[Rfam]
RNA sequence: GCAGUGGUUUAGGUAGUCUCAUGUUGUUGGGCUUAUAUUAGUUCUCCCACAACACGAAACUGCCUUGAUUACCUC
Numbered sequence: 001g002c003a004g005u006g007g008u009u010u011a012g013g014u015a016g017u018c019u020c021a022u023g024u025u026g027u028u029g030g031g032c033u034u035a036u037a038u039u040a041g042u043u044c045u046c047c048c049a050c051a052a053c054a055c056g057a058a059a060c061u062g063c064c065u066u067g068a069u070u071a072c073c074u075c
Stems, first nucleotide, its partner, number of pairs: 004072006011065007019057001022054006029047003
RNA: mir-196 microRNA precursor family
Organism: Gouania willdenowi